Shown here is a 172-nucleotide sequence from Alteromonas pelagimontana, a member of the family "Manganese Mn2+ riboswitch aptamer (yybP-ykoY)". The literature on the family includes a 2001 paper in Curr Biol by Argaman et al., "Novel small RNA-encoding genes in the intergenic regions of Escherichia coli". A search with the family's covariance model found it, with a score of 64 bits.
[Rfam]
RNA sequence: UUCCCCUUCGUUGGGGAGUAGCCUGUUUCCAUAAUUUUUGGAAAAGUUCGUAUCAACAUAAUUGGUCAUCCGGCCAUGGUACGAACACCUCUCGGUUGGCGAGACCAUCGAUAUUUCCAUGCCUAAGGUCAGGCGUGUGGAUUAUCGUGGACUCAAUAUGCCUGACCGGAGU
Numbered sequence: 001u002u003c004c005c006c007u008u009c010g011u012u013g014g015g016g017a018g019u020a021g022c023c024u025g026u027u028u029c030c031a032u033a034a035u036u037u038u039u040g041g042a043a044a045a046g047u048u049c050g051u052a053u054c055a056a057c058a059u060a061a062u063u064g065g066u067c068a069u070c071c072g073g074c075c076a077u078g079g080u081a082c083g084a085a086c087a088c089c090u091c092u093c094g095g096u097u098g099g100c101g102a103g104a105c106c107a108u109c110g111a112u113a114u115u116u117c118c119a120u121g122c123c124u125a126a127g128g129u130c131a132g133g134c135g136u137g138u139g140g141a142u143u144a145u146c147g148u149g150g151a152c153u154c155a156a157u158a159u160g161c162c163u164g165a166c167c168g169g170a171g172u
Stems, first nucleotide, its partner, number of pairs: 026044003046086010063076005093171001